[Rfam]
RNA sequence: GCCGCAGUGGCGGAAUCGGCAGACGCAAGGGACUUAAAAUCCCUCGGGGGCAACCCCGUGACAGUUCAAGUCUGUUCUGCGGCA
Numbered sequence: 001g002c003c004g005c006a007g008u009g010g011c012g013g014a015a016u017c018g019g020c021a022g023a024c025g026c027a028a029g030g031g032a033c034u035u036a037a038a039a040u041c042c043c044u045c046g047g048g049g050g051c052a053a054c055c056c057c058g059u060g061a062c063a064g065u066u067c068a069a070g071u072c073u074g075u076u077c078u079g080c081g082g083c084a
Stems, first nucleotide, its partner, number of pairs: 001083007010026003028044005060076005
About this RNA
A member of the RNA family "tRNA" from Anaerotruncus massiliensis, 84 nucleotides long. It scores 54 bits against the family's covariance model. It is annotated as a transfer RNA. The base pairs follow the family's consensus structure, which is taken from published work.